[Rfam]
RNA sequence: UGAUUGUCCAAACGCAAUUCUUGUGUCUGCCUCCAUGAAACCAGGAGUUGUGGAUGGACAUC
Numbered sequence: 001u002g003a004u005u006g007u008c009c010a011a012a013c014g015c016a017a018u019u020c021u022u023g024u025g026u027c028u029g030c031c032u033c034c035a036u037g038a039a040a041c042c043a044g045g046a047g048u049u050g051u052g053g054a055u056g057g058a059c060a061u062c
Stems, first nucleotide, its partner, number of pairs: 002062003006059005013052011
RNA: mir-219 microRNA precursor family
Organism: Salmo salar